RNA sequence: GCCAUCCCGCGUGACUGGCGAAUGAGGUGGGCGACCACCGGGGAGCGCGGAGACCAUAUUGCGUGUCCCGUGAUGCGCCGCCGCUCGCCUGGGCACCGCCG
Dot-bracket structure: ....(.((((((..(([[[[[.....((((....))))..))..)))))).)...........................(((..]]]]]..))).......

Background: ZMP/ZTP riboswitch aptamer (pfl RNA motif): a 101-nucleotide RNA from Phenylobacterium deserti. Rfam links the family to the GO terms regulation of purine nucleotide biosynthetic process and one-carbon metabolic process.